[Rfam]
The family of this 214-nucleotide sequence from Alphaproteobacteria bacterium PA2 is "permuted transfer-messenger RNA".
RNA sequence: GAGGAUAAACGCGCACGUAAUAAGCGGACUGGACCCGGGUGCGAUUCCCGGCGGCUCCACCAAUCUUCCCCCGGGUAUCGCCGGAAAGUGCGGGGCCGAUCAGCAUCGACAGACGUGUAAAGGUGUUGCUUUCUUCCGGCGUGGCUCACCGUCUCGGGCCAUUAAUGUAAAUGCGAACGAUAACUUCGCUGAAGAAGUCCGUUUGGCCGCGUAA
Numbered sequence: 001g002a003g004g005a006u007a008a009a010c011g012c013g014c015a016c017g018u019a020a021u022a023a024g025c026g027g028a029c030u031g032g033a034c035c036c037g038g039g040u041g042c043g044a045u046u047c048c049c050g051g052c053g054g055c056u057c058c059a060c061c062a063a064u065c066u067u068c069c070c071c072c073g074g075g076u077a078u079c080g081c082c083g084g085a086a087a088g089u090g091c092g093g094g095g096c097c098g099a100u101c102a103g104c105a106u107c108g109a110c111a112g113a114c115g116u117g118u119a120a121a122g123g124u125g126u127u128g129c130u131u132u133c134u135u136c137c138g139g140c141g142u143g144g145c146u147c148a149c150c151g152u153c154u155c156g157g158g159c160c161a162u163u164a165a166u167g168u169a170a171a172u173g174c175g176a177a178c179g180a181u182a183a184c185u186u187c188g189c190u191g192a193a194g195a196a197g198u199c200c201g202u203u204u205g206g207c208c209g210c211g212u213a214a
Stems, first nucleotide, its partner, number of pairs: 001136005013126004025115002029112003035051005052098007137151003
Lineage of the source: Bacteria > Pseudomonadati > Pseudomonadota > Alphaproteobacteria. Bacterial tmRNA, also known as 10Sa RNA or SsrA, is named for its dual tRNA and mRNA-like properties. The family's consensus secondary structure is taken from published work. On this family, see Williams and Bartel, RNA 1996: "Phylogenetic analysis of tmRNA secondary structure". A search with the family's covariance model found it, with a score of 125 bits.